Plant small nucleolar RNA R71: a 109-nucleotide RNA sequence from Phtheirospermum japonicum. Gene Ontology terms of the family: nucleolus and RNA processing. The literature on the family includes a 2003 paper in Trends Plant Sci by Brown et al., "Plant snoRNAs: functional evolution and new modes of gene expression". It is annotated as a C/D-box small nucleolar RNA.

Nucleotides: 109
Stems, first nucleotide, its partner, number of pairs: 001109001003107002005104002058073001
Number, partner (000 for none) and nucleotide at each position: 001109u002000u003107g004106u005104u006103g007000u008000g009000a010000u011000a012000u013000g014000g015000g016000c017000a018000c019000g020000c021000u022000u023000g024000c025000a026000a027000a028000a029000g030000u031000g032000c033000u034000u035000u036000a037000u038000a039000a040000c041000g042000c043000u044000c045000c046000c047000a048000u049000g050000c051000u052000u053000c054000g055000u056000g057000g058073a059000a060000u061000a062000a063000c064000u065000c066000a067000c068000c069000a070000u071000c072000c073058u074000g075000c076000u077000g078000a079000u080000c081000a082000a083000a084000a085000u086000u087000a088000g089000c090000g091000a092000u093000u094000u095000u096000u097000a098000c099000c100000u101000c102000c103006u104005a105000a106004g107003c108000u109001g